[Rfam]
RNA: 6S / SsrS RNA
RNA sequence: CGUUCUCUGCGGUACUCGACGGCAUGUGCAAACAUUCGCCUUGUCCCUUAAGAACGACACCGGGAGCGCGACAGCGCCGGGAGUGCAGGUCCGCCUUGUAGCGGGAAGCCCGAUGGUUCUCCAGCGUUCCCACUUGAGCCCCCGGGUUCAAGGUCGUUUCGCAUGCAUCGACAUUGCGGAGAAUGC
Number, nucleotide and partner (000 for none) at each position: 001c000002g184003u183004u182005c181006u180007c179008u178009g177010c176011g175012g174013u173014a000015c000016u000017c170018g169019a168020c000021g000022g000023c000024a000025u000026g000027u000028g000029c000030a000031a000032a000033c000034a000035u000036u000037c000038g154039c153040c152041u000042u150043g149044u000045c146046c145047c000048u000049u000050a000051a000052g000053a000054a000055c000056g000057a000058c000059a000060c000061c000062g131063g130064g129065a000066g127067c126068g125069c124070g000071a000072c000073a120074g119075c000076g117077c116078c115079g114080g000081g000082a000083g000084u000085g109086c108087a000088g000089g000090u105091c104092c103093g102094c101095c000096u000097u000098g000099u000100a000101g094102c093103g092104g091105g090106a000107a000108g086109c085110c000111c000112g000113a000114u079115g078116g077117u076118u000119c074120u073121c000122c000123a000124g069125c068126g067127u066128u000129c064130c063131c062132a000133c000134u000135u000136g000137a000138g000139c000140c000141c000142c000143c000144g000145g046146g045147u000148u000149c043150a042151a000152g040153g039154u038155c000156g000157u000158u000159u000160c000161g000162c000163a000164u000165g000166c000167a000168u019169c018170g017171a000172c000173a013174u012175u011176g010177c009178g008179g007180a006181g005182a004183a003184u002185g000186c000